[Rfam]
RNA: Small Cajal body-specific RNA 2
RNA sequence: CCUCACGGGUGGGAGAGCGGCCUGGGCUGAGGCGAGUGUGUGUUGUGUUGUGGUGUCGCGUGGAAGGUGUGUGCGGGCCCAGUGAGUGAAUGGACGCUCGAGUGUGUGCGCGAGGAGAGUGCAAGGCGAGUGCGUGUGCCUCCCCUGCGCCCCUCCCCCCGUCUACACCUUGAUCUUAUUUGAUCGGGUCGUGACCCCAGCCCCGCCGGGCCGCCCGAAAUGAAAAGCUCUCCUCCUGCGAAGCCCCCUCUCCCGGGCCCUGUGCAGCGAGGCCCCUUGGGCGGCGGCAGCGCCGCGGUCCCCGAGGUCCCGAAGCCGGUCCUACGGGCCCGGCGCUCAGAAGUGAUGAAUUGAUCAGAUAGACGAGGCCGGGCCUGUCCCGGCCAAUGAUUAUCGAGGCGAUUCUGAUCUGA
Numbered sequence: 001c002c003u004c005a006c007g008g009g010u011g012g013g014a015g016a017g018c019g020g021c022c023u024g025g026g027c028u029g030a031g032g033c034g035a036g037u038g039u040g041u042g043u044u045g046u047g048u049u050g051u052g053g054u055g056u057c058g059c060g061u062g063g064a065a066g067g068u069g070u071g072u073g074c075g076g077g078c079c080c081a082g083u084g085a086g087u088g089a090a091u092g093g094a095c096g097c098u099c100g101a102g103u104g105u106g107u108g109c110g111c112g113a114g115g116a117g118a119g120u121g122c123a124a125g126g127c128g129a130g131u132g133c134g135u136g137u138g139c140c141u142c143c144c145c146u147g148c149g150c151c152c153c154u155c156c157c158c159c160c161g162u163c164u165a166c167a168c169c170u171u172g173a174u175c176u177u178a179u180u181u182g183a184u185c186g187g188g189u190c191g192u193g194a195c196c197c198c199a200g201c202c203c204c205g206c207c208g209g210g211c212c213g214c215c216c217g218a219a220a221u222g223a224a225a226a227g228c229u230c231u232c233c234u235c236c237u238g239c240g241a242a243g244c245c246c247c248c249u250c251u252c253c254c255g256g257g258c259c260c261u262g263u264g265c266a267g268c269g270a271g272g273c274c275c276c277u278u279g280g281g282c283g284g285c286g287g288c289a290g291c292g293c294c295g296c297g298g299u300c301c302c303c304g305a306g307g308u309c310c311c312g313a314a315g316c317c318g319g320u321c322c323u324a325c326g327g328g329c330c331c332g333g334c335g336c337u338c339a340g341a342a343g344u345g346a347u348g349a350a351u352u353g354a355u356c357a358g359a360u361a362g363a364c365g366a367g368g369c370c371g372g373g374c375c376u377g378u379c380c381c382g383g384c385c386a387a388u389g390a391u392u393a394u395c396g397a398g399g400c401g402a403u404u405c406u407g408a409u410c411u412g413a
Stems, first nucleotide, its partner, number of pairs: 052151005057073006084099001086097003102139003107134005114127001179226003184218004190213002193211001196210003200206002247307003253304001255302003260298002264296002267293003272288003275284002315334005320328003338412004348405006367385004372380002